[Rfam]
RNA sequence: UUUCCCAUUUGACUACCACAUUUUCUCCUGUGAUAGAUUUUAGUGGCUAUGCUUAUGGGAGAGAUGAAAGUUGCCAUGAUCUGAAGAGGGAGGGCUUUUCAGUGCCCUCCUCCUAUAUGGAAUGGCUGAACAGAAGACC
Dot-bracket structure: ...((((........((((.......................)))).........)))).............((((..............((((................))))........)))).............
Small nucleolar RNA SNORA29: a 139-nucleotide RNA sequence from Cavia porcellus.
Gene Ontology terms of the family: RNA processing and nucleolus.
Rfam classes the family as an H/ACA-box small nucleolar RNA.
A reference for the family is Huttenhofer et al. (2001), "RNomics: an experimental approach that identifies 201 candidates for novel, small, non-messenger RNAs in mouse", EMBO J.
Rfam's curators write: ACA29 is a member of the H/ACA class of snoRNA that guide the sites of modification of uridines to pseudouridines.
It is one of the family's seed sequences.
The family's consensus secondary structure was predicted with PFOLD.